RgsA sRNA: a 197-nucleotide sequence from Pseudomonas benzenivorans. Rfam describes the family as follows. This small RNA (sRNA) was computationally identified in the genome of the opportunistic pathogen Pseudomonas aeruginosa and its expression verified by northern blot analysis. P16 sRNA appears to be conserved across several Pseudomonas species and Azotobacter vinelandii. In these species it is consistently located downstream of a predicted TatD deoxyribonuclease gene. The match comes from Rfam's covariance-model search (170 bits). By type it is a small RNA. The base pairs follow the family's consensus structure, which was predicted with RNAalifold.
RNA sequence: CAACAGGCGUUCGGGUAUUCCAAAUCUGUUUAAAAAAUGAGCCGAAACAGCCUGGACGAUCAGCAAACUUCGCCAAUACUCAAGAUUACUGAAGCGCGGCAUCUCCCCCCAAGUGCCCCUUCAGGCAAGGUACCGUGGACCGCGUACCUUGAUUUACUCCUAAUGGUCUUAACCCGGAUUCAUCCCCCAGAAUCCGG
Numbered sequence: 001c002a003a004c005a006g007g008c009g010u011u012c013g014g015g016u017a018u019u020c021c022a023a024a025u026c027u028g029u030u031u032a033a034a035a036a037a038u039g040a041g042c043c044g045a046a047a048c049a050g051c052c053u054g055g056a057c058g059a060u061c062a063g064c065a066a067a068c069u070u071c072g073c074c075a076a077u078a079c080u081c082a083a084g085a086u087u088a089c090u091g092a093a094g095c096g097c098g099g100c101a102u103c104u105c106c107c108c109c110c111a112a113g114u115g116c117c118c119c120u121u122c123a124g125g126c127a128a129g130g131u132a133c134c135g136u137g138g139a140c141c142g143c144g145u146a147c148c149u150u151g152a153u154u155u156a157c158u159c160c161u162a163a164u165g166g167u168c169u170u171a172a173c174c175c176g177g178a179u180u181c182a183u184c185c186c187c188c189a190g191a192a193u194c195c196g197g
Stems, first nucleotide, its partner, number of pairs: 039168002042166003089124003096119001098117001100115003126151008134142001174197004179192003